[Rfam]
RNA: Ribosomal S15 leader
Organism: Endozoicomonas montiporae
RNA sequence: AAGGUCGGCUGUAAAUAUGCACGGUCGUACCCGCUUUAUGUUUAAGCAUAUUCUAUGGAGACUUUAUCAUGGCUUUGACUGUUGAAAAGAAAGCUGAAAUCAUCAAGGAAUUCGGUCGCUCUGAA
Numbered sequence: 001a002a003g004g005u006c007g008g009c010u011g012u013a014a015a016u017a018u019g020c021a022c023g024g025u026c027g028u029a030c031c032c033g034c035u036u037u038a039u040g041u042u043u044a045a046g047c048a049u050a051u052u053c054u055a056u057g058g059a060g061a062c063u064u065u066a067u068c069a070u071g072g073c074u075u076u077g078a079c080u081g082u083u084g085a086a087a088a089g090a091a092a093g094c095u096g097a098a099a100u101c102a103u104c105a106a107g108g109a110a111u112u113c114g115g116u117c118g119c120u121c122u123g124a125a
Base pairs, nucleotide, nucleotide: 007026008025009024010023011022012021052078053077057076058075059074060073